[Rfam]
RNA sequence: UGGGGCCCGAACAGGGACCUGGAAACGAGGGACUCCGGAAGGAAGAGGACGCCAAAGGACGGUCGACACCGCUAACAAAGACAAUAGAAAGUAAUACUCUUCCGAUCACCGGGGAACCUGCCGCGUCUGAACGAAGGUAAGUGGACGCGCUCCGAAAUGGGACAGAAUUAAGCAACAUCAAAUUUUAUGUAGGACAAUUAAAAUUAAAGAUGACGAGGAGUAAGGUUAAAGGUAAUGUUUGUUUAAAUUUUUUUUGAUUUUGUAAAAGACACAUAUGCCCUU
Numbered sequence: 001u002g003g004g005g006c007c008c009g010a011a012c013a014g015g016g017a018c019c020u021g022g023a024a025a026c027g028a029g030g031g032a033c034u035c036c037g038g039a040a041g042g043a044a045g046a047g048g049a050c051g052c053c054a055a056a057g058g059a060c061g062g063u064c065g066a067c068a069c070c071g072c073u074a075a076c077a078a079a080g081a082c083a084a085u086a087g088a089a090a091g092u093a094a095u096a097c098u099c100u101u102c103c104g105a106u107c108a109c110c111g112g113g114g115a116a117c118c119u120g121c122c123g124c125g126u127c128u129g130a131a132c133g134a135a136g137g138u139a140a141g142u143g144g145a146c147g148c149g150c151u152c153c154g155a156a157a158u159g160g161g162a163c164a165g166a167a168u169u170a171a172g173c174a175a176c177a178u179c180a181a182a183u184u185u186u187a188u189g190u191a192g193g194a195c196a197a198u199u200a201a202a203a204u205u206a207a208a209g210a211u212g213a214c215g216a217g218g219a220g221u222a223a224g225g226u227u228a229a230a231g232g233u234a235a236u237g238u239u240u241g242u243u244u245a246a247a248u249u250u251u252u253u254u255u256g257a258u259u260u261u262g263u264a265a266a267a268g269a270c271a272c273a274u275a276u277g278c279c280c281u282u
Stems, first nucleotide, its partner, number of pairs: 006031003036048001095139003100135002106130003110125002112122002147163001150161003169206003214256005219249003223240003227237002265282002268279001270277001
Dot-bracket structure: .....(((....................)))....(...........)..............................................(((..((....(((.((((.......)).))..)))...)).))).......(..(((......))).).....(((................................))).......((((((((.(((.((.......)))))......)))..)))))........((.(.(......).).))
The family of this 282-nucleotide sequence from Cercocebus atys is "Mason-Pfizer monkey virus packaging signal". The organism belongs to Cercocebus, within Eukaryota. By type it is a cis-regulatory element. The base pairs follow the family's consensus structure, which was predicted with PFOLD. About the family: This family represents a group of sequences that are related to the Mason-Pfizer monkey virus (MPMV) packaging signal.